This 73-nucleotide RNA from Elachura formosa belongs to the Rfam family "tRNA".
[Rfam]
RNA sequence: CCUUCAAUAGCUCAGCUGGUAGAGCAGAGGACUGUAGGCUCCCUUUUUGCUGGUUCAACUCCAGCUCGAAGGA
Numbered sequence: 001c002c003u004u005c006a007a008u009a010g011c012u013c014a015g016c017u018g019g020u021a022g023a024g025c026a027g028a029g030g031a032c033u034g035u036a037g038g039c040u041c042c043c044u045u046u047u048u049g050c051u052g053g054u055u056c057a058a059c060u061c062c063a064g065c066u067c068g069a070a071g072g073a
Base pairs, nucleotide, nucleotide: 001072002071003070004069005068007066010025011024012023013022027044029042030041031040049065050064051063052062053061
The family's consensus secondary structure is taken from published work.
The match comes from Rfam's covariance-model search (45 bits).
By type it is a transfer RNA.